Record summary
The record is an 81-nucleotide RNA from Frateuria terrea, which matches "Fluoride riboswitch aptamer (crcB RNA motif)" in Rfam. The match comes from Rfam's covariance-model search (38 bits). Taxonomically the source falls in Frateuria (Bacteria, Pseudomonadati, Lysobacterales, Rhodanobacteraceae).
RNA sequence: CGCCGGAUGGGAGAUGGCAUGCCUCCUGUUCCUGCCGGAACGAACCACCCCGACCGAGGGGUUGAUGAUGCCUGCACACCG
Numbered sequence: 001c002g003c004c005g006g007a008u009g010g011g012a013g014a015u016g017g018c019a020u021g022c023c024u025c026c027u028g029u030u031c032c033u034g035c036c037g038g039a040a041c042g043a044a045c046c047a048c049c050c051c052g053a054c055c056g057a058g059g060g061g062u063u064g065a066u067g068a069u070g071c072c073u074g075c076a077c078a079c080c081g
Base pairs, nucleotide, nucleotide: 010026011025012024013023016072017071018070019069020068047062048061049060050059

Its family is annotated with response to fluoride and positive regulation of gene expression in the Gene Ontology.
The base pairs follow the family's consensus structure, which is taken from published work.